FMN riboswitch aptamer (RFN element): a 115-nucleotide sequence from Ruminiclostridium sufflavum. For this family Rfam cites "An mRNA structure that controls gene expression by binding FMN" (Winkler et al., Proc Natl Acad Sci U S A, 2002). Pairs were carried over by alignment from the consensus structure, which is taken from published work.

RNA sequence: UAUAUUCUUCAGGGAUAGGUGAAAUUCCUUAUCGGCGGUAAAGCCCGCGAGCCAUAAUGGCUGAUCUGGUUAAAUUCCGGAGCCGACAGUAUAGUCUGGAUGAGAGAAGAAUUUU
Numbered sequence: 001u002a003u004a005u006u007c008u009u010c011a012g013g014g015a016u017a018g019g020u021g022a023a024a025u026u027c028c029u030u031a032u033c034g035g036c037g038g039u040a041a042a043g044c045c046c047g048c049g050a051g052c053c054a055u056a057a058u059g060g061c062u063g064a065u066c067u068g069g070u071u072a073a074a075u076u077c078c079g080g081a082g083c084c085g086a087c088a089g090u091a092u093a094g095u096c097u098g099g100a101u102g103a104g105a106g107a108a109g110a111a112u113u114u115u
Stems, first nucleotide, its partner, number of pairs: 004112007017029003031095002033085002035048004043083002051061003065081005087098003